[Rfam]
RNA sequence: AAACAAGUCAUUGGGGAGUAGCCUGUUCUAGAUAUUAUUCUAGAAAGUCCGUAUCAACAUACUCGUUUGAAUUUAAACGUGGUGCGGACACCAUUUCGGUUGGCAAGACCAUAGACACAUAAAUAAGCCUUUUGGUUGGGGGUAAUUUAUGUGUUAUAUGGAUUCACCAACCGAGGUU
Numbered sequence: 001a002a003a004c005a006a007g008u009c010a011u012u013g014g015g016g017a018g019u020a021g022c023c024u025g026u027u028c029u030a031g032a033u034a035u036u037a038u039u040c041u042a043g044a045a046a047g048u049c050c051g052u053a054u055c056a057a058c059a060u061a062c063u064c065g066u067u068u069g070a071a072u073u074u075a076a077a078c079g080u081g082g083u084g085c086g087g088a089c090a091c092c093a094u095u096u097c098g099g100u101u102g103g104c105a106a107g108a109c110c111a112u113a114g115a116c117a118c119a120u121a122a123a124u125a126a127g128c129c130u131u132u133u134g135g136u137u138g139g140g141g142g143u144a145a146u147u148u149a150u151g152u153g154u155u156a157u158a159u160g161g162a163u164u165c166a167c168c169a170a171c172c173g174a175g176g177u178u
Base pairs, nucleotide, nucleotide: 026045027044028043047089048088049087050086051085052084053083054082055081056080064079065078066077067076068075093178095176096175
A member of the RNA family "Manganese Mn2+ riboswitch aptamer (yybP-ykoY)" from Providencia sneebia, 178 nucleotides long. This RNA was originally discovered in E. coli during a large scale screen and was named SraF. The family was later found to exist upstream of related families of protein genes in many bacteria, including the the yybP and ykoK genes in B. subtilis. The organism belongs to Providencia sneebia, within Bacteria.